[Rfam]
RNA: t44 RNA
Nucleotides: 098
Stems, first nucleotide, its partner, number of pairs: 023088008035079005041073003048070004
Number, partner (000 for none) and nucleotide at each position: 001000c002000c003000u004000u005000a006000g007000c008000a009000a010000a011000g012000g013000c014000a015000a016000a017000a018000u019000c020000a021000c022000a023088c024087a025086c026085g027084u028083g029082c030081c031000g032000a033000c034000a035079c036078a037077g038076u039075u040000u041073u042072c043071g044000g045000g046000g047000u048070g049069c050068u051067g052000u053000c054000u055000g056000a057000a058000a059000a060000u061000u062000c063000a064000g065000a066000u067051c068050a069049g070048u071043c072042g073041a074000u075039a076038g077037c078036u079035g080000g081030g082029g083028u084027a085026c086025g087024u088023g089000g090000a091000g092000g093000u094000u095000u096000a097000a098000c